Nucleotides: 085
Base pairs, nucleotide, nucleotide: 003054006051007050008048009047010046011045012044015041016040017073018072019071020070021069026037027036028035029034062080063079065077066076
Number, partner (000 for none) and nucleotide at each position: 001000c002000g003054u004000a005000c006051u007050c008048g009047u010046c011045g012044c013000g014000a015041c016040u017073g018072g019071c020070g021069u022000c023000u024000g025000g026037g027036u028035g029034g030000a031000c032000u033000a034029c035028c036027a037026c038000c039000g040016g041015g042000g043000a044012g045011c046010g047009a048008c049000u050007g051006a052000c053000c054003a055000c056000g057000g058000a059000a060000u061000u062080c063079g064000a065077c066076c067000g068000c069021g070020c071019g072018c073017c074000u075000g076066g077065g078000c079063c080062g081000a082000u083000a084000g085000g
Shown here is an 85-nucleotide RNA sequence from Microbacterium sp. Se63.02b, a member of the family "ZMP/ZTP riboswitch aptamer (pfl RNA motif)". Lineage of the source: Bacteria > Actinomycetota > Actinomycetes > Micrococcales > Microbacterium. Pairs were carried over by alignment from the consensus structure, which is taken from published work.